[Rfam]
RNA: Small nucleolar RNA SNORA46
RNA sequence: AGCACUAUUUUUAAACCUGUUGGUGGAAUUUCCUGACCACCAUGGGUUACGCUGUAGUGCAAAAGCAUCUCCUAACUCUGGAAAAUACAGCUGACCUUGCUCUGUUCAGCUGAUGCUCCUCUGAAGUUAGUUAACAGAA
Numbered sequence: 001a002g003c004a005c006u007a008u009u010u011u012u013a014a015a016c017c018u019g020u021u022g023g024u025g026g027a028a029u030u031u032c033c034u035g036a037c038c039a040c041c042a043u044g045g046g047u048u049a050c051g052c053u054g055u056a057g058u059g060c061a062a063a064a065g066c067a068u069c070u071c072c073u074a075a076c077u078c079u080g081g082a083a084a085a086u087a088c089a090g091c092u093g094a095c096c097u098u099g100c101u102c103u104g105u106u107c108a109g110c111u112g113a114u115g116c117u118c119c120u121c122u123g124a125a126g127u128u129a130g131u132u133a134a135c136a137g138a139a
Base pairs, nucleotide, nucleotide: 002060003059004058005057006056007055008054014048015047016046017045021042022041023040024039025038026037068134072130074128075127076126077125079123081121082120086115087114088112089111090110091109093107094106